Rfam assigns this 148-nucleotide RNA sequence from Aquamicrobium lusatiense to the family "Alphaproteobacterial sRNA ar9". The literature on the family includes a 2012 paper in RNA Biol by del Val et al., "A survey of sRNA families in alpha-proteobacteria". A search with the family's covariance model found it, with a score of 116 bits. Pairs were carried over by alignment from the consensus structure.
RNA sequence: AUAAUCGAGAGAGCAGCACAAAAACUGUUCUCCUACGCGGUCUAAAGUCUUGGGAGGAUGCGAUCUAGGCGCGGUUACUCGCAGCCGCCGGAUACCGGAAGCAGAUCGGACGCGUUCAUUGUGCAAGGCUUCUGCCUUGCAUUUUUUU
Numbered sequence: 001a002u003a004a005u006c007g008a009g010a011g012a013g014c015a016g017c018a019c020a021a022a023a024a025c026u027g028u029u030c031u032c033c034u035a036c037g038c039g040g041u042c043u044a045a046a047g048u049c050u051u052g053g054g055a056g057g058a059u060g061c062g063a064u065c066u067a068g069g070c071g072c073g074g075u076u077a078c079u080c081g082c083a084g085c086c087g088c089c090g091g092a093u094a095c096c097g098g099a100a101g102c103a104g105a106u107c108g109g110a111c112g113c114g115u116u117c118a119u120u121g122u123g124c125a126a127g128g129c130u131u132c133u134g135c136c137u138u139g140c141a142u143u144u145u146u147u148u
Base pairs, nucleotide, nucleotide: 003148004147011030012029013028014027015026016025036114037113038112039111047059048058049057050056062107063106064105065104066103068086069085070084071082072081073080088098089097090096122141123140124139125138126137127136128135129134